[Rfam]
RNA: Small nucleolar RNA SNORA63
Organism: Ornithorhynchus anatinus
RNA sequence: ACGCAGGAACUAGUUACAAUGUGGCUGUGUGGUGCCGUGUUGUCGUUCCCCCUGCUGAAAGCAAAACGUGUCUCUUUCUAUCCCUGUCCGCCUCGAUCUACUCCCGGCGGUCAGGGACGCUUGGCUUCACACAU
Numbered sequence: 001a002c003g004c005a006g007g008a009a010c011u012a013g014u015u016a017c018a019a020u021g022u023g024g025c026u027g028u029g030u031g032g033u034g035c036c037g038u039g040u041u042g043u044c045g046u047u048c049c050c051c052c053u054g055c056u057g058a059a060a061g062c063a064a065a066a067c068g069u070g071u072c073u074c075u076u077u078c079u080a081u082c083c084c085u086g087u088c089c090g091c092c093u094c095g096a097u098c099u100a101c102u103c104c105c106g107g108c109g110g111u112c113a114g115g116g117a118c119g120c121u122u123g124g125c126u127u128c129a130c131a132c133a134u
Stems, first nucleotide, its partner, number of pairs: 003055005016043010083115004088110004